[Rfam]
RNA sequence: AAUAAGUCUUCGGGGAGCCGAGCAAAACCGGCUGAGAGUGGGCGUGUGCGCCCUGACCCGUGAACCUGAUACGGCUAAUACCGUCGGAGGGAAAGAUGCAUAUAUGGGA
Numbered sequence: 001a002a003u004a005a006g007u008c009u010u011c012g013g014g015g016a017g018c019c020g021a022g023c024a025a026a027a028c029c030g031g032c033u034g035a036g037a038g039u040g041g042g043c044g045u046g047u048g049c050g051c052c053c054u055g056a057c058c059c060g061u062g063a064a065c066c067u068g069a070u071a072c073g074g075c076u077a078a079u080a081c082c083g084u085c086g087g088a089g090g091g092a093a094a095g096a097u098g099c100a101u102a103u104a105u106g107g108g109a
Base pairs, nucleotide, nucleotide: 006097007096008095009094010093011060012059013058014057016054017032018031019030020029040053041052042051043050065090066089067088071084072083073082074081

This 109-nucleotide RNA from Firmicutes bacterium CAG:110 belongs to the Rfam family "TPP riboswitch aptamer (THI element)". Taxonomically the source falls in Bacillota (Bacteria, Bacillati). A search with the family's covariance model found it, with a score of 72 bits. The base pairs follow the family's consensus structure, which is taken from published work.